[Rfam]
RNA sequence: UGCCGUCUUGUAUGGCUUUUUAUUCCUAUGUGAUUAUACAUCCCACUUCAUAUAGGGAUUGAAGCCGUGCAGU
Numbered sequence: 001u002g003c004c005g006u007c008u009u010g011u012a013u014g015g016c017u018u019u020u021u022a023u024u025c026c027u028a029u030g031u032g033a034u035u036a037u038a039c040a041u042c043c044c045a046c047u048u049c050a051u052a053u054a055g056g057g058a059u060u061g062a063a064g065c066c067g068u069g070c071a072g073u
Stems, first nucleotide, its partner, number of pairs: 008072012022059012

Overview
This 73-nucleotide RNA belongs to the Rfam family "mir-135 microRNA precursor family". Rfam 15.1 lists 2,125 matches to the family in 647 species. Pairs were carried over by alignment from the consensus structure, which was predicted with PFOLD.